[Rfam]
RNA: mir-196 microRNA precursor family
RNA sequence: GGAGUGGUUUAGGUAGUUUCAUGUUGUUGGGGUUGCAUUUCCAUCUCUGCAACAGGAAGCUGUCUUAAUUGCUAC
Dot-bracket structure: ..(((((((.(((((((((..((((((.(((.............))).))))))..))))))))).)))))))..